Rfam assigns this 99-nucleotide RNA sequence from a Cryomorphaceae bacterium to the family "SAM riboswitch aptamer (S box leader)".

RNA sequence: UGCUUAUCAAGAAAGACUGAGGGAAGGGCCCUUUGACGUCUUGGCAACCCGGAAGAGCCGGGUGCUAAAUCCCACUCCGAAGAAGGAGAGAGAUGAGCG
Numbered sequence: 001u002g003c004u005u006a007u008c009a010a011g012a013a014a015g016a017c018u019g020a021g022g023g024a025a026g027g028g029c030c031c032u033u034u035g036a037c038g039u040c041u042u043g044g045c046a047a048c049c050c051g052g053a054a055g056a057g058c059c060g061g062g063u064g065c066u067a068a069a070u071c072c073c074a075c076u077c078c079g080a081a082g083a084a085g086g087a088g089a090g091a092g093a094u095g096a097g098c099g
Base pairs, nucleotide, nucleotide: 001099002098003097004096005095006094007093008092013042014041015040016039017038021031022030023029026073027072028071043066044065045064046063048062049061050060051059052058070091075088076087077086078085
Lineage of the source: Bacteria > Pseudomonadati > Flavobacteriia > Flavobacteriales > Cryomorphaceae.